Notes:
The record is a 64-nucleotide RNA from Desulfofarcimen acetoxidans, which matches "RAGATH-18 RNA" in Rfam.
[Rfam]
Nucleotides: 064
Base pairs, nucleotide, nucleotide: 001062002061003060004059005058009051010050011049012048013047022046023045024044030039031038032037
Number, partner (000 for none) and nucleotide at each position: 001062a002061c003060u004059g005058u006000g007000g008000a009051a010050u011049g012048u013047u014000a015000c016000a017000u018000c019000a020000a021000a022046u023045g024044c025000g026000a027000g028000u029000a030039g031038c032037u033000u034000u035000g036000u037032g038031g039030c040000a041000a042000a043000a044024g045023c046022a047013g048012a049011c050010a051009u052000u053000a054000u055000u056000a057000a058005g059004c060003a061002g062001u063000a064000a